RNA sequence: CAUUAAAGCUGGGGGUGCCUUCAAAGGCUGAGAAAGAGGAUUAUCCUCUUAACCCUUUGAACCUGAUGCGGUUAGUACCGCCGGAGGGAAGCUGACUUUUAUAAUU
Numbered sequence: 001c002a003u004u005a006a007a008g009c010u011g012g013g014g015g016u017g018c019c020u021u022c023a024a025a026g027g028c029u030g031a032g033a034a035a036g037a038g039g040a041u042u043a044u045c046c047u048c049u050u051a052a053c054c055c056u057u058u059g060a061a062c063c064u065g066a067u068g069c070g071g072u073u074a075g076u077a078c079c080g081c082c083g084g085a086g087g088g089a090a091g092c093u094g095a096c097u098u099u100u101a102u103a104a105u106u
Stems, first nucleotide, its partner, number of pairs: 007093004011056004017028004035049005062087003068081004
Shown here is a 106-nucleotide RNA sequence from Thermoclostridium stercorarium, a member of the family "TPP riboswitch aptamer (THI element)".
A search with the family's covariance model found it, with a score of 82 bits.
Its family is annotated with thiamine pyrophosphate binding in the Gene Ontology.
Pairs were carried over by alignment from the consensus structure, which is taken from published work.